About this RNA:
This 80-nucleotide RNA from Megasphaera micronuciformis belongs to the Rfam family "ZMP/ZTP riboswitch aptamer (pfl RNA motif)". Taxonomically the source falls in Megasphaera micronuciformis (Bacteria, Bacillati, Negativicutes, Veillonellaceae).

RNA sequence: GGAAAGUCAUGUGACUGACGGAAAGUGGAGUUAACCACGGGGAGCAUGACCGAUUACAGCCGACCGUCUGGGCAUUUGGU
Numbered sequence: 001g002g003a004a005a006g007u008c009a010u011g012u013g014a015c016u017g018a019c020g021g022a023a024a025g026u027g028g029a030g031u032u033a034a035c036c037a038c039g040g041g042g043a044g045c046a047u048g049a050c051c052g053a054u055u056a057c058a059g060c061c062g063a064c065c066g067u068c069u070g071g072g073c074a075u076u077u078g079g080u
Stems, first nucleotide, its partner, number of pairs: 006050007015041002017068005025038004059073003